[Rfam]
RNA sequence: ACACAAGAAAGGAGGUGAUCCAGUGGGCUUACCGUUAACCAUCUGGACAUGUGAGGUGAUUGUAACGUAGGUGUGUCCUCCUCACCGGAUCGACUGCCUAUGGAUUCCGCCUACGGAAUUCCAGCGGUCACCGAGCCCUGAAGCCUUGGCCUUGUCCAGCCAAGCCCCGCGAUGCUGUCGCAGGGAAGCGCUUCGGGGCUUUUUAUU
Numbered sequence: 001a002c003a004c005a006a007g008a009a010a011g012g013a014g015g016u017g018a019u020c021c022a023g024u025g026g027g028c029u030u031a032c033c034g035u036u037a038a039c040c041a042u043c044u045g046g047a048c049a050u051g052u053g054a055g056g057u058g059a060u061u062g063u064a065a066c067g068u069a070g071g072u073g074u075g076u077c078c079u080c081c082u083c084a085c086c087g088g089a090u091c092g093a094c095u096g097c098c099u100a101u102g103g104a105u106u107c108c109g110c111c112u113a114c115g116g117a118a119u120u121c122c123a124g125c126g127g128u129c130a131c132c133g134a135g136c137c138c139u140g141a142a143g144c145c146u147u148g149g150c151c152u153u154g155u156c157c158a159g160c161c162a163a164g165c166c167c168c169g170c171g172a173u174g175c176u177g178u179c180g181c182a183g184g185g186a187a188g189c190g191c192u193u194c195g196g197g198g199c200u201u202u203u204u205a206u207u
Stems, first nucleotide, its partner, number of pairs: 015063005066115006073107001075105002079103002133201012145164006